The record is a 509-nucleotide RNA sequence from Pyxidicoccus fallax, which matches "Saccharopolyspora sRNA 350" in Rfam.
For this family Rfam cites "Prediction and characterization of small non-coding RNAs related to secondary metabolites in Saccharopolyspora erythraea" (Liu et al., PLoS One, 2013).
Rfam 15.1 lists 1,170 matches to the family in 705 species.
NCBI's taxonomy places the organism under Bacteria, Myxococcota, Myxococcia, Cystobacterineae, Pyxidicoccus.
[Rfam]
RNA sequence: CUGGCGGUGAACUGCCAGUAGUCCUGCGUCUCCAGCAGCGCCUGGUAGCUGUAGUGGUCGCCAUCCGCCAGCGUCUCCAGCACCAGCGGCUCACCGUACUUGCCGGUGCCGAUGCGGUUCACCUUGCCGUGGGCGAUGAGGACGAUGGAGUCCGCCUCCUUGCCGGCCUCGGUGAUGACCUCACCGGCCUUGUACUCCUUCUGCACGAAGCGGUUGGCCAGCGCGGUGAGCACCUCCACGUCCUCGUAGCCGCGCAGCAGGGGCAGCUCGCCCAGCUCCUGCGGGAUGACCUGCACCCUGGCGCCGGUGCUGAUGAAGGUGACGCGGCCGUCGCCCACCGCGUAGGUCAUGCGGCGGUUGACGCGGUACGUGCCGCCGGACACCUGCACCCACGGCAGCAGCUUGAGCAGCCACCGCGAGGAGAUGCCCUGCAUCUGCGGCUCGGACUUGGUCGUCGUCGCCAGCUGGCGGGCCGCCUGGGUUCCGAGGCUCAGGUUGUUGUCGUCGAG
Numbered sequence: 001c002u003g004g005c006g007g008u009g010a011a012c013u014g015c016c017a018g019u020a021g022u023c024c025u026g027c028g029u030c031u032c033c034a035g036c037a038g039c040g041c042c043u044g045g046u047a048g049c050u051g052u053a054g055u056g057g058u059c060g061c062c063a064u065c066c067g068c069c070a071g072c073g074u075c076u077c078c079a080g081c082a083c084c085a086g087c088g089g090c091u092c093a094c095c096g097u098a099c100u101u102g103c104c105g106g107u108g109c110c111g112a113u114g115c116g117g118u119u120c121a122c123c124u125u126g127c128c129g130u131g132g133g134c135g136a137u138g139a140g141g142a143c144g145a146u147g148g149a150g151u152c153c154g155c156c157u158c159c160u161u162g163c164c165g166g167c168c169u170c171g172g173u174g175a176u177g178a179c180c181u182c183a184c185c186g187g188c189c190u191u192g193u194a195c196u197c198c199u200u201c202u203g204c205a206c207g208a209a210g211c212g213g214u215u216g217g218c219c220a221g222c223g224c225g226g227u228g229a230g231c232a233c234c235u236c237c238a239c240g241u242c243c244u245c246g247u248a249g250c251c252g253c254g255c256a257g258c259a260g261g262g263g264c265a266g267c268u269c270g271c272c273c274a275g276c277u278c279c280u281g282c283g284g285g286a287u288g289a290c291c292u293g294c295a296c297c298c299u300g301g302c303g304c305c306g307g308u309g310c311u312g313a314u315g316a317a318g319g320u321g322a323c324g325c326g327g328c329c330g331u332c333g334c335c336c337a338c339c340g341c342g343u344a345g346g347u348c349a350u351g352c353g354g355c356g357g358u359u360g361a362c363g364c365g366g367u368a369c370g371u372g373c374c375g376c377c378g379g380a381c382a383c384c385u386g387c388a389c390c391c392a393c394g395g396c397a398g399c400a401g402c403u404u405g406a407g408c409a410g411c412c413a414c415c416g417c418g419a420g421g422a423g424a425u426g427c428c429c430u431g432c433a434u435c436u437g438c439g440g441c442u443c444g445g446a447c448u449u450g451g452u453c454g455u456c457g458u459c460g461c462c463a464g465c466u467g468g469c470g471g472g473c474c475g476c477c478u479g480g481g482u483u484c485c486g487a488g489g490c491u492c493a494g495g496u497u498g499u500u501g502u503c504g505u506c507g508a509g
Stems, first nucleotide, its partner, number of pairs: 006390004011385001018328002021325002025322001027321004031316002036312007045305001048302004054233002058229005064223001065111001067109002077102001079100002082097002117222003122217002127212001130209001131206001133204003138199001140197001144195001150191001154189001156187002160183001161178001166173002235295001237293001240290003244286002251281002254278001256277003260271001262269001329342003352378006361371003391431002394428004399423001403418001407415001437476004442471003448464005477509002480503003485498003
By type it is an antisense RNA.